[Rfam]
RNA sequence: AGGAGGAACAACCCCAGUGGCUGCUGCAGCUCUGGAGCCGUGGAUUCAUCUCCCACAGCAACUCCGGAGCUCUCUGUCAGCAGGGCCUGGAUGCUCCGGGGCGGG
Numbered sequence: 001a002g003g004a005g006g007a008a009c010a011a012c013c014c015c016a017g018u019g020g021c022u023g024c025u026g027c028a029g030c031u032c033u034g035g036a037g038c039c040g041u042g043g044a045u046u047c048a049u050c051u052c053c054c055a056c057a058g059c060a061a062c063u064c065c066g067g068a069g070c071u072c073u074c075u076g077u078c079a080g081c082a083g084g085g086c087c088u089g090g091a092u093g094c095u096c097c098g099g100g101g102c103g104g105g
Stems, first nucleotide, its partner, number of pairs: 002097004007092001009089002012085003019078003023074001028071009041057002

mir-8834 microRNA precursor family: a 105-nucleotide RNA from Canis lupus.
Rfam 15.1 lists 13,926 matches to the family in 17 species.
Rfam links the family to the GO terms RISC complex and miRNA-mediated post-transcriptional gene silencing.
Taxonomically the source falls in Canis lupus (Eukaryota, Vertebrata, Amniota, Canidae).
It scores 70 bits against the family's covariance model.